[Rfam]
RNA: Nitrogen stress-induced RNA 9
RNA sequence: UACUAUAUUCACGCCUGUGAGUGUGGCUAAUGUCGAAUUAGCCACUGUUGCUGAUUGUUGGGAAGGUGUAGGAACAAUCCUUCUGGGGUUUUCUUGCAUGACGGGCAUCUCUUGUAGAUGCCC
Numbered sequence: 001u002a003c004u005a006u007a008u009u010c011a012c013g014c015c016u017g018u019g020a021g022u023g024u025g026g027c028u029a030a031u032g033u034c035g036a037a038u039u040a041g042c043c044a045c046u047g048u049u050g051c052u053g054a055u056u057g058u059u060g061g062g063a064a065g066g067u068g069u070a071g072g073a074a075c076a077a078u079c080c081u082u083c084u085g086g087g088g089u090u091u092u093c094u095u096g097c098a099u100g101a102c103g104g105g106c107a108u109c110u111c112u113u114g115u116a117g118a119u120g121c122c123c
Base pairs, nucleotide, nucleotide: 006066008064009063010062012060013059015057017055018054020052021051022050023045024044025043026042027041028040029039067098068097069096070095071094072093073092074091076089078087079086103123104122105121106120107119108118109117110116